[Rfam]
RNA sequence: UUCCGCGAAAUCUAUUUCAGUAGAGCGUAUGAAGUCGAUGGCCCGAGGUAGAGCACUCAAUGGGCUAGGGUGGCCACGCCUUACCAACCUCAGGGAAACUCCGAAUACAGGCCGUCAUCGUUUGUACAGACAGACUUAUUGGGUGCUAAGAUCCAAAGUCGAGAGGGAAACAGCCCAGAUCGUACGCUAAGGUCCCUAAGCAAUCACUUAGUGGAAAAGGAAGUGAUCGAGCGAUGACAACCAGGAGGUGGGCUUGGAAGCAGCCAUCCUUUGAAGAAAGCGUAAUAGCUCACUGGUCUAGCUCCAUAGCACCGAAAAUGUCUCAGGGCUCAAGUGAUUCACCGAAGCGACGAGACCUUGCAAAAAGCAGCCUUUCAAGUGUCAGUAGCGGGACGUUCUGUCAAUCGAAGAAGGGUUUUGGUAACAACACCUGGAGAUAUCAGAAGUGAGAAU
Number, nucleotide and partner (000 for none) at each position: 001u393002u392003c391004c390005g389006c388007g000008a000009a000010a000011u024012c023013u022014a021015u020016u000017u000018c000019a000020g015021u014022a013023g012024a011025g000026c129027g127028u126029a125030u124031g123032a122033a121034g000035u000036c120037g116038a115039u114040g113041g112042c111043c110044c000045g108046a000047g000048g000049u000050a000051g102052a100053g099054c000055a000056c000057u096058c095059a000060a000061u092062g091063g090064g089065c000066u000067a000068g085069g084070g082071u000072g080073g079074c078075c000076a000077c000078g074079c073080c072081u000082u070083a000084c069085c068086a000087a000088c000089c064090u063091c062092a061093g000094g000095g058096a057097a000098a000099c053100u052101c000102c051103g000104a000105a000106u000107a000108c045109a000110g043111g042112c041113c040114g039115u038116c037117a000118u000119c000120g036121u033122u032123u031124g030125u029126a028127c027128a000129g026130a000131c000132a000133g160134a159135c158136u157137u000138a000139u156140u155141g154142g153143g152144u151145g000146c000147u000148a000149a000150g000151a144152u143153c142154c141155a140156a139157a136158g135159u134160c133161g000162a000163g000164a000165g176166g175167g174168a000169a000170a000171c000172a000173g000174c167175c166176c165177a000178g000179a000180u353181c352182g351183u350184a000185c349186g348187c347188u000189a000190a000191g343192g342193u341194c000195c000196c000197u000198a000199a000200g340201c000202a339203a338204u337205c336206a335207c334208u000209u000210a000211g000212u000213g000214g000215a000216a000217a000218a000219g313220g312221a000222a000223g310224u309225g000226a307227u306228c000229g304230a303231g302232c301233g000234a000235u000236g000237a000238c000239a000240a297241c296242c295243a294244g293245g000246a270247g269248g268249u000250g000251g265252g264253c263254u000255u000256g000257g000258a000259a000260g000261c000262a000263g253264c252265c251266a000267u000268c248269c247270u246271u275272u000273g000274a000275a271276g291277a000278a000279a000280g289281c288282g000283u000284a000285a000286u000287a000288g281289c280290u000291c276292a000293c244294u243295g242296g241297u240298c000299u000300a000301g232302c231303u230304c229305c000306a227307u226308a000309g224310c223311a000312c220313c219314g000315a000316a000317a000318a000319u000320g000321u000322c000323u000324c000325a000326g000327g000328g000329c000330u000331c000332a000333a000334g207335u206336g205337a204338u203339u202340c200341a193342c192343c191344g000345a000346a000347g187348c186349g185350a183351c182352g181353a180354g383355a382356c381357c379358u378359u377360g376361c000362a000363a000364a000365a000366a000367g000368c000369a000370g000371c000372c000373u000374u000375u000376c360377a359378a358379g357380u000381g356382u355383c354384a000385g000386u000387a000388g006389c005390g004391g003392g002393a001394c448395g000396u445397u444398c443399u442400g441401u000402c000403a000404a438405u437406c436407g000408a000409a000410g000411a000412a000413g432414g431415g430416u429417u000418u427419u426420g425421g000422u000423a000424a000425c420426a419427a418428c000429a416430c415431c414432u413433g000434g000435a000436g406437a405438u404439a000440u000441c400442a399443g398444a397445a396446g000447u000448g394449a000450g000451a000452a000453u000